Streptococcus RNA 266: a 97-nucleotide RNA sequence from Streptococcus intermedius.
NCBI's taxonomy places the organism under Bacteria, Bacillati, Bacilli, Streptococcus, Streptococcus intermedius.
RNA sequence: AAUGAUGGUUUUGUCGCUUUUCAUUAUAGGUCUUAUGGGACUUUUUUAUGAACACAAUAAAAAACUCUAUGACUUCUACAGAAAAAAUCAUAGAGUU
Numbered sequence: 001a002a003u004g005a006u007g008g009u010u011u012u013g014u015c016g017c018u019u020u021u022c023a024u025u026a027u028a029g030g031u032c033u034u035a036u037g038g039g040a041c042u043u044u045u046u047u048a049u050g051a052a053c054a055c056a057a058u059a060a061a062a063a064a065c066u067c068u069a070u071g072a073c074u075u076c077u078a079c080a081g082a083a084a085a086a087a088u089c090a091u092a093g094a095g096u097u
Stems, first nucleotide, its partner, number of pairs: 001025005008017002028043005063097005069091004074086002
Dot-bracket structure: (((((..((......))...)))))..(((((......)))))...................(((((.((((.((.........)).)))).)))))